RNA: mir-8834 microRNA precursor family
RNA sequence: AGGAGGAACAGCCCCAGUGGCGGCGGCCAGCUCUGGAGCCCUGGAGUCAGCCCCCAGUAACUCCGGAGCUCUCGGUCUCCAGGGGCCUGGAGGCUCCAGGGCGGG
Numbered sequence: 001a002g003g004a005g006g007a008a009c010a011g012c013c014c015c016a017g018u019g020g021c022g023g024c025g026g027c028c029a030g031c032u033c034u035g036g037a038g039c040c041c042u043g044g045a046g047u048c049a050g051c052c053c054c055c056a057g058u059a060a061c062u063c064c065g066g067a068g069c070u071c072u073c074g075g076u077c078u079c080c081a082g083g084g085g086c087c088u089g090g091a092g093g094c095u096c097c098a099g100g101g102c103g104g105g
Stems, first nucleotide, its partner, number of pairs: 002097004009089003012085003019077003023073001025072002029070009041057003